[Rfam]
Record summary:
This 218-nucleotide RNA sequence from Pseudomonas putida belongs to the Rfam family "sucA-II RNA".
RNA sequence: CCGAGGUGCGGGUGGUGAGCCCGCACUGAGGUAAAACCCGAACAAGGGCCCACAAAGCCCGCGUUCAUUACCUAUGAAGAUAUGAGACCAGCAGGGGCUUUCCGGGCUGGUACCCGGAAAAUCAGCAGGAUCCAGGUGGCGUGGUUCAGUCGCUGUUUUCGGACUUUUCCAGGUUUGCUGUGGCUCUCGCCGAUCAGUCCCCUAAUCGAGGGUGACCA
Numbered sequence: 001c002c003g004a005g006g007u008g009c010g011g012g013u014g015g016u017g018a019g020c021c022c023g024c025a026c027u028g029a030g031g032u033a034a035a036a037c038c039c040g041a042a043c044a045a046g047g048g049c050c051c052a053c054a055a056a057g058c059c060c061g062c063g064u065u066c067a068u069u070a071c072c073u074a075u076g077a078a079g080a081u082a083u084g085a086g087a088c089c090a091g092c093a094g095g096g097g098c099u100u101u102c103c104g105g106g107c108u109g110g111u112a113c114c115c116g117g118a119a120a121a122u123c124a125g126c127a128g129g130a131u132c133c134a135g136g137u138g139g140c141g142u143g144g145u146u147c148a149g150u151c152g153c154u155g156u157u158u159u160c161g162g163a164c165u166u167u168u169c170c171a172g173g174u175u176u177g178c179u180g181u182g183g184c185u186c187u188c189g190c191c192g193a194u195c196a197g198u199c200c201c202c203u204a205a206u207c208g209a210g211g212g213u214g215a216c217c218a
Stems, first nucleotide, its partner, number of pairs: 001031002005027009040066004046060004093203005098197002101118006121194003125190002129186002132183002135179005140173001142171003148165004
Dot-bracket structure: ((..(((((((((.....)))))))))..))........((((..((((.......))))..))))..........................(((((((.((((((......))))))..(((.((..((.((.((((((.(((...((((..........))))...))).).)))))..)).))..)).))).)).)))))...............